Rfam assigns this 87-nucleotide RNA from Colocasia esculenta to the family "MIR164 microRNA precursor family". Rfam links the family to the GO terms miRNA-mediated post-transcriptional gene silencing and RISC complex. Rfam 15.1 lists 201 matches to the family in 125 species. Lineage of the source: Eukaryota > Streptophyta > Spermatophyta > Araceae > Colocasia. The literature on the family includes a 2002 paper in Genes Dev by Reinhart et al., "MicroRNAs in plants".

[Rfam]
RNA sequence: UGGAGAAGGGGAGCACGUGCAAAGUGAGGGAGAAGAGGUGGAUACAACAGGGGCCUCGGGCCUUUGCACGUGCCCUGCUUCUCCAGC
Number, nucleotide and partner (000 for none) at each position: 001u085002g084003g083004a082005g081006a080007a079008g078009g000010g076011g075012a000013g073014c072015a071016c070017g069018u068019g067020c066021a065022a064023a063024g062025u000026g000027a000028g000029g000030g000031a000032g000033a000034a000035g000036a000037g000038g000039u000040g000041g000042a000043u000044a000045c000046a000047a000048c000049a000050g000051g000052g000053g000054c000055c000056u000057c000058g000059g000060g000061c000062c024063u023064u022065u021066g020067c019068a018069c017070g016071u015072g014073c013074c000075c011076u010077g000078c008079u007080u006081c005082u004083c003084c002085a001086g000087c000